[Rfam]
Notes:
The family of this 105-nucleotide RNA sequence from Sphaeramia orbicularis is "Vault RNA".
RNA sequence: GCACUGGUGUAGCUCAGUGGUUACUUCGACCAUCAAUUCUGCCUCAGAAUUCGAACGUCUCUAUCCCUCCCCGGGAUCGAACCACGGGUGCUGUCCAGUGCUUUU
Number, nucleotide and partner (000 for none) at each position: 001g000002c100003a099004c098005u097006g096007g095008u000009g000010u000011a000012g089013c088014u087015c086016a000017g085018u084019g083020g082021u000022u000023a000024c000025u081026u080027c079028g078029a077030c000031c000032a000033u000034c000035a000036a000037u000038u000039c000040u000041g000042c000043c000044u000045c000046a000047g000048a000049a000050u000051u000052c000053g000054a000055a000056c000057g000058u000059c000060u000061c000062u000063a000064u000065c000066c000067c000068u000069c000070c000071c000072c000073g000074g000075g000076a000077u029078c028079g027080a026081a025082c020083c019084a018085c017086g015087g014088g013089u012090g000091c000092u000093g000094u000095c007096c006097a005098g004099u003100g002101c000102u000103u000104u000105u000
Rfam describes the family as follows. This family of RNAs are found as part of the enigmatic vault ribonucleoprotein complex.